[Rfam]
Rfam assigns this 186-nucleotide RNA sequence from Triplophysa rosa to the family "Small nucleolar RNA SNORA81". A reference for the family is Gu et al. (2005), "A novel experimental approach for systematic identification of box H/ACA snoRNAs from eukaryotes", Nucleic Acids Res. Gene Ontology terms of the family: nucleolus and RNA processing. The base pairs follow the family's consensus structure, which was predicted with WAR.
RNA sequence: CCCUUCUUUCAAAAGCAUCGUUCUAAAGUCAUCAGCUCAAGACCUUUGGGUCUAGAGCUAGUGUUCAUGCUAGUACUGGUUAAUCACAAAGAAGGAAGACCAAAAGCACAUGUUCGGAAAUGAGCCUAGAAAGGACCUCUUUCUUAAUGUCCAGUGUACUAAUUCUCAAGAUGCUGUGCCACACGU
Numbered sequence: 001c002c003c004u005u006c007u008u009u010c011a012a013a014a015g016c017a018u019c020g021u022u023c024u025a026a027a028g029u030c031a032u033c034a035g036c037u038c039a040a041g042a043c044c045u046u047u048g049g050g051u052c053u054a055g056a057g058c059u060a061g062u063g064u065u066c067a068u069g070c071u072a073g074u075a076c077u078g079g080u081u082a083a084u085c086a087c088a089a090a091g092a093a094g095g096a097a098g099a100c101c102a103a104a105a106g107c108a109c110a111u112g113u114u115c116g117g118a119a120a121u122g123a124g125c126c127u128a129g130a131a132a133g134g135a136c137c138u139c140u141u142u143c144u145u146a147a148u149g150u151c152c153a154g155u156g157u158a159c160u161a162a163u164u165c166u167c168a169a170g171a172u173g174c175u176g177u178g179c180c181a182c183a184c185g186u
Base pairs, nucleotide, nucleotide: 019079021075023073024072025071028068029067031065034059035058037056038055040053041052042051043050044049106179107178108177109176110175128157130155133152134151135150